[Rfam]
RNA sequence: CGACUUACCUCGGGGUGCCACCAGAUGUGGCUGAGAUGCGCGAUGCGGACCCGUAGAACCUGAACCGGCUAAAACCGGCGGAGGGAAGGUAUGAGACUCGCAU
Numbered sequence: 001c002g003a004c005u006u007a008c009c010u011c012g013g014g015g016u017g018c019c020a021c022c023a024g025a026u027g028u029g030g031c032u033g034a035g036a037u038g039c040g041c042g043a044u045g046c047g048g049a050c051c052c053g054u055a056g057a058a059c060c061u062g063a064a065c066c067g068g069c070u071a072a073a074a075c076c077g078g079c080g081g082a083g084g085g086a087a088g089g090u091a092u093g094a095g096a097c098u099c100g101c102a103u
Base pairs, nucleotide, nucleotide: 006091007090008089009088010087011053012052013051014050016047017031018030019029020028021027040046041045059084060083061082065078066077067076068075
Dot-bracket structure: .....(((((((((.((((((.....)))))........((...)))..)))).....(((...((((......))))...)))..)))))............